[Rfam]
RNA sequence: GACAAUGAUGAGAUUCCACUUCUAGGUCCGUGUUUUUGAUACCUUAUGAUAUUAGUGGAAGUUCUGAUGUC
Numbered sequence: 001g002a003c004a005a006u007g008a009u010g011a012g013a014u015u016c017c018a019c020u021u022c023u024a025g026g027u028c029c030g031u032g033u034u035u036u037u038g039a040u041a042c043c044u045u046a047u048g049a050u051a052u053u054a055g056u057g058g059a060a061g062u063u064c065u066g067a068u069g070u071c
Stems, first nucleotide, its partner, number of pairs: 001071004